Annotation
A member of the RNA family "Fluoride riboswitch aptamer (crcB RNA motif)" from Salana multivorans, 75 nucleotides long. Lineage of the source: Bacteria > Bacillati > Actinomycetota > Micrococcales > Salana.
RNA sequence: UGACGACACGGCGAUGGCGCUCGCCGGGGCAGACAGCCCGAACCGCCGUUCUCGGCUGAUAGCACCUGUGACGAG
Numbered sequence: 001u002g003a004c005g006a007c008a009c010g011g012c013g014a015u016g017g018c019g020c021u022c023g024c025c026g027g028g029g030c031a032g033a034c035a036g037c038c039c040g041a042a043c044c045g046c047c048g049u050u051c052u053c054g055g056c057u058g059a060u061a062g063c064a065c066c067u068g069u070g071a072c073g074a075g
Base pairs, nucleotide, nucleotide: 010025011024012023013022016066017065019063020062021061045056046055047054048053